[Rfam]
RNA sequence: ACCUGUUCCGUGGCGCCGUAACGGCGUCGGGAGCAUCAGACACAGACUGUGCCCUGGGAAGAUCUGGGCACUUCAGGGCGUU
Numbered sequence: 001a002c003c004u005g006u007u008c009c010g011u012g013g014c015g016c017c018g019u020a021a022c023g024g025c026g027u028c029g030g031g032a033g034c035a036u037c038a039g040a041c042a043c044a045g046a047c048u049g050u051g052c053c054c055u056g057g058g059a060a061g062a063u064c065u066g067g068g069c070a071c072u073u074c075a076g077g078g079c080g081u082u
Stems, first nucleotide, its partner, number of pairs: 004035006011029007049071006056064001
A member of the RNA family "nrdJ RNA" from Streptomyces sp. ADI97-07, 82 nucleotides long. By type it is a small RNA. The source organism's lineage runs through Bacteria, Bacillati, Actinomycetes, Kitasatosporales and Streptomyces.